[Rfam]
RNA sequence: GAACCCUAUAAAGCGCCAGAACUGGAGCGGAAUGAAGCAGCUUUCAGCUUGCCUGUGAAUCGGUCUUAAGUCAUCCGUCAGGAGGACUUCUCUUAUUUCCCAGACAACGCGGAGCGGGUGGAAGACAGCUGAAUUCGGCCAGUUGACGAGGUGAAGGUGUUCGAAACAUUCGGCGGGGACCUUCCGGUGUGCGAUCCGAACCGUAAGUCGAACUACAAAUCGUCCGGGUGACCGGACAGACAAAUGUUCGGCGGGAUCAACG
Numbered sequence: 001g002a003a004c005c006c007u008a009u010a011a012a013g014c015g016c017c018a019g020a021a022c023u024g025g026a027g028c029g030g031a032a033u034g035a036a037g038c039a040g041c042u043u044u045c046a047g048c049u050u051g052c053c054u055g056u057g058a059a060u061c062g063g064u065c066u067u068a069a070g071u072c073a074u075c076c077g078u079c080a081g082g083a084g085g086a087c088u089u090c091u092c093u094u095a096u097u098u099c100c101c102a103g104a105c106a107a108c109g110c111g112g113a114g115c116g117g118g119u120g121g122a123a124g125a126c127a128g129c130u131g132a133a134u135u136c137g138g139c140c141a142g143u144u145g146a147c148g149a150g151g152u153g154a155a156g157g158u159g160u161u162c163g164a165a166a167c168a169u170u171c172g173g174c175g176g177g178g179a180c181c182u183u184c185c186g187g188u189g190u191g192c193g194a195u196c197c198g199a200a201c202c203g204u205a206a207g208u209c210g211a212a213c214u215a216c217a218a219a220u221c222g223u224c225c226g227g228g229u230g231a232c233c234g235g236a237c238a239g240a241c242a243a244a245u246g247u248u249c250g251g252c253g254g255g256a257u258c259a260a261c262g
Stems, first nucleotide, its partner, number of pairs: 020144006153184005161173004185203004190198001207252007222237006
RNA: glmS glucosamine-6-phosphate activated ribozyme aptamer